[Rfam]
RNA sequence: CCUAGGCAGGCGGCGUCAUCUGGGGAGUAGCCAGCCGUCCGGACGCCGGGCGGGCCAUGCGUCAACAUAUUUGGCCGAGAGGCCGUGGCGCAUGGGGAACGGACAUCCGUUCC
Numbered sequence: 001c002c003u004a005g006g007c008a009g010g011c012g013g014c015g016u017c018a019u020c021u022g023g024g025g026a027g028u029a030g031c032c033a034g035c036c037g038u039c040c041g042g043a044c045g046c047c048g049g050g051c052g053g054g055c056c057a058u059g060c061g062u063c064a065a066c067a068u069a070u071u072u073g074g075c076c077g078a079g080a081g082g083c084c085g086u087g088g089c090g091c092a093u094g095g096g097g098a099a100c101g102g103a104c105a106u107c108c109g110u111u112c113c
Stems, first nucleotide, its partner, number of pairs: 035053005055095010072085005096113007
Dot-bracket structure: ..................................(((((.........))))).((((((((((.......(((((....)))))))))))))))(((((((....)))))))
This 113-nucleotide RNA from Sphingobium phenoxybenzoativorans belongs to the Rfam family "Manganese Mn2+ riboswitch aptamer (yybP-ykoY)". The family has 29 seed sequences and 1,126 matches in Rfam 15.1. Taxonomically the source falls in Sphingobium (Bacteria, Pseudomonadati, Pseudomonadota, Alphaproteobacteria). This RNA was originally discovered in E. coli during a large scale screen and was named SraF. The family was later found to exist upstream of related families of protein genes in many bacteria, including the the yybP and ykoK genes in B. subtilis.